[Rfam]
RNA: Bacterial RNase P class A
RNA sequence: AGAGUUGGCUGGGCAACCGCUGUUCAAUAAUAUAAGGAAGUGUGUAAGCACUUUUUUAUGGAUUUGAAGGGAGGAAAGUCCGGGCUCCAUAGGGCAAAGCGCCAGGUAACGCCUGGGGGGUGUGAGCCUACGGAAAGUGCAGCAGAGAGUAGACCGCCUAAGCAAUGAGCUUGCAAAAGUAAGUUGCCGGUAAGGGUGAAAGGGUGCGGUAAGAGCGCACCGCAUGCGUGGUAACACGUCAUGGCAUGGUAAACCCCGCUUGGAGCAAGACCAAAUAGGAAUUCUUAAGUGCGGCCCGCGCUGAAUUCGGGUAGGUUGCUUGAGGUGUAUAGUGAUAUACAUCCCAGAUGAAUGGUUGCCUUCGACAGAACCCGGCUUACAGGCCAACUCUCCAA
Numbered sequence: 001a002g003a004g005u006u007g008g009c010u011g012g013g014c015a016a017c018c019g020c021u022g023u024u025c026a027a028u029a030a031u032a033u034a035a036g037g038a039a040g041u042g043u044g045u046a047a048g049c050a051c052u053u054u055u056u057u058a059u060g061g062a063u064u065u066g067a068a069g070g071g072a073g074g075a076a077a078g079u080c081c082g083g084g085c086u087c088c089a090u091a092g093g094g095c096a097a098a099g100c101g102c103c104a105g106g107u108a109a110c111g112c113c114u115g116g117g118g119g120g121u122g123u124g125a126g127c128c129u130a131c132g133g134a135a136a137g138u139g140c141a142g143c144a145g146a147g148a149g150u151a152g153a154c155c156g157c158c159u160a161a162g163c164a165a166u167g168a169g170c171u172u173g174c175a176a177a178a179g180u181a182a183g184u185u186g187c188c189g190g191u192a193a194g195g196g197u198g199a200a201a202g203g204g205u206g207c208g209g210u211a212a213g214a215g216c217g218c219a220c221c222g223c224a225u226g227c228g229u230g231g232u233a234a235c236a237c238g239u240c241a242u243g244g245c246a247u248g249g250u251a252a253a254c255c256c257c258g259c260u261u262g263g264a265g266c267a268a269g270a271c272c273a274a275a276u277a278g279g280a281a282u283u284c285u286u287a288a289g290u291g292c293g294g295c296c297c298g299c300g301c302u303g304a305a306u307u308c309g310g311g312u313a314g315g316u317u318g319c320u321u322g323a324g325g326u327g328u329a330u331a332g333u334g335a336u337a338u339a340c341a342u343c344c345c346a347g348a349u350g351a352a353u354g355g356u357u358g359c360c361u362u363c364g365a366c367a368g369a370a371c372c373c374g375g376c377u378u379a380c381a382g383g384c385c386a387a388c389u390c391u392c393c394a395a
Base pairs, nucleotide, nucleotide: 001391002390003389004388005387006386007385008384009383010382011380012360013359014358015357016356017355018354020071021070023068024067025066026065027064076378077377078376080375081374082373083372084371085265086264087263088262092297093296094295095294097261098260099259100258101257102116103115104114105113106112117131118129119128120127121126132256133255137254138253139250140249154195155194156191157190158189162187163186164185165184166183203221204220205219206218207217208216222245223243224242225241226240228237229236230235269317270316271315272314279308280307281306282305283304284303288302289301290300291299292298324343325342326341327340328339329338330337331336